[Rfam]
RNA sequence: UGGGUCGGCCAGGCGGUCGCGUGCCGCGUGAGCGGUCCGAGGAACGUCCGGGCUCCACAGAGCAGGACGGUGGGUAACGCCCACCCGGGGUAACCCGCGAGAAAGUGCCACAGAAAGCAAACCGCCCGCAAGGGUAAGGGUGAAAGGGUGCGGUAAGAGCGCACCGGUCGGCUGGUGACAGUCGUCGCACGGUAAACCUCGUCCGGAGCAAGGCCAACAGGGAAUGAUGACGCUGCUCGUCGAGUUCCCGGGUGUGCUGCUAGAGCGGCGCGGUAACGCGUCGCCGAGAAAGAUGGCCGCCACGGAUGCACAUCCGUACAGAACCCGGCGUAUCGGCCGACCCGCUCG
Numbered sequence: 001u002g003g004g005u006c007g008g009c010c011a012g013g014c015g016g017u018c019g020c021g022u023g024c025c026g027c028g029u030g031a032g033c034g035g036u037c038c039g040a041g042g043a044a045c046g047u048c049c050g051g052g053c054u055c056c057a058c059a060g061a062g063c064a065g066g067a068c069g070g071u072g073g074g075u076a077a078c079g080c081c082c083a084c085c086c087g088g089g090g091u092a093a094c095c096c097g098c099g100a101g102a103a104a105g106u107g108c109c110a111c112a113g114a115a116a117g118c119a120a121a122c123c124g125c126c127c128g129c130a131a132g133g134g135u136a137a138g139g140g141u142g143a144a145a146g147g148g149u150g151c152g153g154u155a156a157g158a159g160c161g162c163a164c165c166g167g168u169c170g171g172c173u174g175g176u177g178a179c180a181g182u183c184g185u186c187g188c189a190c191g192g193u194a195a196a197c198c199u200c201g202u203c204c205g206g207a208g209c210a211a212g213g214c215c216a217a218c219a220g221g222g223a224a225u226g227a228u229g230a231c232g233c234u235g236c237u238c239g240u241c242g243a244g245u246u247c248c249c250g251g252g253u254g255u256g257c258u259g260c261u262a263g264a265g266c267g268g269c270g271c272g273g274u275a276a277c278g279c280g281u282c283g284c285c286g287a288g289a290a291a292g293a294u295g296g297c298c299g300c301c302a303c304g305g306a307u308g309c310a311c312a313u314c315c316g317u318a319c320a321g322a323a324c325c326c327g328g329c330g331u332a333u334c335g336g337c338c339g340a341c342c343c344g345c346u347c348g
Stems, first nucleotide, its partner, number of pairs: 001344010011333001012301007020039002023036005044331003048328005053208004060237001065204005070084005085099001086097004100199002105197002107193003122139002124135004147165006166188001167186001169184006212258003220249006229241004265284008
The family of this 348-nucleotide sequence from Gulosibacter macacae is "Bacterial RNase P class A". Its family is annotated with ribonuclease P activity, tRNA processing and dimeric ribonuclease P complex in the Gene Ontology. Rfam classes the family as a ribozyme.